[Rfam]
The record is a 78-nucleotide sequence, which matches "Termite-leu RNA" in Rfam. It is annotated as a cis-regulatory element.

RNA sequence: GACGAAAGGGCGCGAUAAAUCGCGCCCUUUCAUAGAUAGUUCGGGGGCUAAACCCCCGAACUUCAGUCAAAAUCAAAG
Numbered sequence: 001g002a003c004g005a006a007a008g009g010g011c012g013c014g015a016u017a018a019a020u021c022g023c024g025c026c027c028u029u030u031c032a033u034a035g036a037u038a039g040u041u042c043g044g045g046g047g048c049u050a051a052a053c054c055c056c057c058g059a060a061c062u063u064c065a066g067u068c069a070a071a072a073u074c075a076a077a078g
Stems, first nucleotide, its partner, number of pairs: 006029010035064002038062007045054002